[Rfam]
RNA sequence: GAUCCCUGGCAGUGUCCAAGGCCAGGCUGGACAUUGGGGCUUGGAGCAGCUUCCCACUGUCCCAGGCUGCUCCAAGCCCCAAUGUCCAACCUGGCCUUGGACACUGCCAGGGAUCCAGG
Number, nucleotide and partner (000 for none) at each position: 001g000002a000003u000004c000005c000006c000007u000008g000009g000010c106011a105012g104013u103014g102015u101016c100017c000018a098019a097020g000021g095022c094023c093024a092025g091026g090027c000028u088029g087030g086031a085032c084033a083034u082035u081036g080037g079038g078039g077040c076041u075042u074043g073044g072045a071046g070047c069048a068049g067050c066051u065052u064053c000054c000055c000056a000057c000058u000059g000060u000061c000062c000063c000064a052065g051066g050067c049068u048069g047070c046071u045072c044073c043074a042075a041076g040077c039078c038079c037080c036081a035082a034083u033084g032085u031086c030087c029088a028089a000090c026091c025092u024093g023094g022095c021096c000097u019098u018099g000100g016101a015102c014103a013104c012105u011106g010107c000108c000109a000110g000111g000112g000113a000114u000115c000116c000117a000118g000119g000
Shown here is a 119-nucleotide sequence from Eulacestoma nigropectus, a member of the family "mraW RNA". The source organism's lineage runs through Eukaryota, Dinosauria, Neoaves, Passeriformes and Eulacestoma. A search with the family's covariance model found it, with a score of 56 bits.